This 199-nucleotide sequence from Pseudomonas panipatensis belongs to the Rfam family "RgsA sRNA".
It scores 154 bits against the family's covariance model.
About the family: This small RNA (sRNA) was computationally identified in the genome of the opportunistic pathogen Pseudomonas aeruginosa and its expression verified by northern blot analysis.
The literature on the family includes a 2006 paper in Nucleic Acids Res by Livny et al., "Identification of 17 Pseudomonas aeruginosa sRNAs and prediction of sRNA-encoding genes in 10 diverse pathogens using the bioinformatic tool sRNAPredict2".

RNA sequence: GGCGAACGUGAGCCGUAUUCCAAAUCCGUUUAAAAAACUGCUGGGCGGUUGUGGACGGCCUGCCAUCUUGGCCAAUACUUCAAGUUACUGGCGUGCGGCAUCUCCCCCCAAGUGUCCCGCCAGUGGAGGUACCGAGGAUCGCGUACCUCAUUGUUACACUCCUAAUGGUCUUGACCCGGAUUCAUCCCCCAGAACCCGG
Numbered sequence: 001g002g003c004g005a006a007c008g009u010g011a012g013c014c015g016u017a018u019u020c021c022a023a024a025u026c027c028g029u030u031u032a033a034a035a036a037a038c039u040g041c042u043g044g045g046c047g048g049u050u051g052u053g054g055a056c057g058g059c060c061u062g063c064c065a066u067c068u069u070g071g072c073c074a075a076u077a078c079u080u081c082a083a084g085u086u087a088c089u090g091g092c093g094u095g096c097g098g099c100a101u102c103u104c105c106c107c108c109c110a111a112g113u114g115u116c117c118c119g120c121c122a123g124u125g126g127a128g129g130u131a132c133c134g135a136g137g138a139u140c141g142c143g144u145a146c147c148u149c150a151u152u153g154u155u156a157c158a159c160u161c162c163u164a165a166u167g168g169u170c171u172u173g174a175c176c177c178g179g180a181u182u183c184a185u186c187c188c189c190c191a192g193a194a195c196c197c198g199g
Stems, first nucleotide, its partner, number of pairs: 040169004087124004094119002097116001099114003125152001126149007133141001176199004181194003